[Rfam]
RNA sequence: GGCCGGGCACCGUCGAGUCGCGUAAGUGAACCGGGGAACCGUGUUCCCGGGGUGAAUCCGCGGUCCCCCCACCGCGGUAGGGCGUGCUUCCCGCCCGAACCCGACAGCUAACCCGGUAGGCGGUCAGGGAAGAAGGA
Number, nucleotide and partner (000 for none) at each position: 001g000002g000003c000004c000005g000006g000007g000008c000009a000010c000011c122012g121013u120014c119015g000016a000017g000018u029019c028020g027021c000022g000023u000024a000025a000026g000027u020028g019029a018030a117031c116032c115033g114034g113035g112036g000037a000038a000039c000040c049041g048042u000043g000044u000045u000046c000047c000048c041049g040050g102051g101052g100053u000054g000055a000056a000057u000058c077059c076060g075061c074062g073063g072064u000065c000066c000067c000068c000069c000070c000071a000072c063073c062074g061075c060076g059077g058078u000079a000080g096081g095082g094083c093084g000085u000086g000087c000088u000089u000090c000091c000092c000093g083094c082095c081096c080097g000098a000099a000100c052101c051102c050103g000104a000105c000106a000107g000108c000109u000110a000111a000112c035113c034114c033115g032116g031117u030118a000119g014120g013121c012122g011123g000124u000125c000126a000127g000128g000129g000130a000131a000132g000133a000134a000135g000136g000137a000